Notes: This 87-nucleotide RNA from Scaptodrosophila lebanonensis belongs to the Rfam family "mir-31 microRNA precursor family". On this family, see Aravin et al., Dev Cell 2003: "The small RNA profile during Drosophila melanogaster development". The match comes from Rfam's covariance-model search (56 bits). Taxonomically the source falls in Scaptodrosophila (Eukaryota, Bilateria, Altocrustacea, Brachycera). The family is grouped with related families in Rfam's "mir-31 microRNA precursor family". The family's consensus secondary structure was predicted with RNAalifold.

RNA sequence: UGUUGGUGAAUUGGCAAGAUGUCGGCAUAGCUGACGUUUGAUAGCGAUUUAACCGCGCUAUGCUGCAUCUAGUCAGUUGGUUCAGCA
Numbered sequence: 001u002g003u004u005g006g007u008g009a010a011u012u013g014g015c016a017a018g019a020u021g022u023c024g025g026c027a028u029a030g031c032u033g034a035c036g037u038u039u040g041a042u043a044g045c046g047a048u049u050u051a052a053c054c055g056c057g058c059u060a061u062g063c064u065g066c067a068u069c070u071a072g073u074c075a076g077u078u079g080g081u082u083c084a085g086c087a
Base pairs, nucleotide, nucleotide: 005082006081007080009078010077011076012075013074014073015072017070018069019068020067021066023065024064025063026062027061028060029059030058031057